Small nucleolar RNA SNORA25: a 126-nucleotide RNA from Capra hircus.
The source organism's lineage runs through Eukaryota, Eumetazoa, Bilateria, Artiodactyla and Capra.
ACA25 is a member of the H/ACA class of snoRNA that guide the sites of modification of uridines to pseudouridines.
By type it is an H/ACA-box small nucleolar RNA.
Nucleotides: 126
Base pairs, nucleotide, nucleotide: 002057003056004055005054006053007052014045015044016043017042018041019040023037026035069119070118071117072116073115076112077111078110079109084104086102087101089100091098092097
Number, partner (000 for none) and nucleotide at each position: 001000a002057g003056g004055u005054c006053a007052u008000u009000u010000c011000a012000a013000a014045g015044a016043g017042g018041g019040c020000c021000a022000g023037u024000g025000g026035g027000a028000c029000c030000g031000a032000a033000c034000c035026c036000a037023g038000g039000c040019g041018c042017u043016c044015u045014u046000a047000a048000c049000g050000c051000u052007g053006u054005g055004a056003c057002u058000g059000a060000a061000g062000a063000u064000u065000g066000a067000g068000u069119u070118c071117u072116c073115c074000a075000u076112u077111a078110g079109g080000c081000u082000c083000a084104g085000g086102a087101g088000u089100c090000a091098c092097u093000c094000g095000g096000u097092g098091g099000c100089g101087c102086u103000g104084u105000g106000u107000u108000u109079c110078c111077u112076g113000g114000c115073g116072g117071a118070g119069a120000u121000a122000c123000a124000g125000a126000a
The match comes from Rfam's covariance-model search (86 bits). The family has 30 seed sequences and 1,129 matches in Rfam 15.1.